[Rfam]
mir-8834 microRNA precursor family: a 107-nucleotide RNA from Canis lupus.
RNA sequence: AGGAGGAACAACCACAGUGUCUGCAGCCAGCUCUGGAGCCCUGGAUUUAGCUCCUGCAGUAACUACAGAACCUUCAGUCUGCAGGGGCCUGGACACUCCAGGGGCAG
Numbered sequence: 001a002g003g004a005g006g007a008a009c010a011a012c013c014a015c016a017g018u019g020u021c022u023g024c025a026g027c028c029a030g031c032u033c034u035g036g037a038g039c040c041c042u043g044g045a046u047u048u049a050g051c052u053c054c055u056g057c058a059g060u061a062a063c064u065a066c067a068g069a070a071c072c073u074u075c076a077g078u079c080u081g082c083a084g085g086g087g088c089c090u091g092g093a094c095a096c097u098c099c100a101g102g103g104g105c106a107g
Stems, first nucleotide, its partner, number of pairs: 002099004009091002012087002019079001021077003025074002030071001032069004037064001041059003
Rfam links the family to the GO terms RISC complex and miRNA-mediated post-transcriptional gene silencing.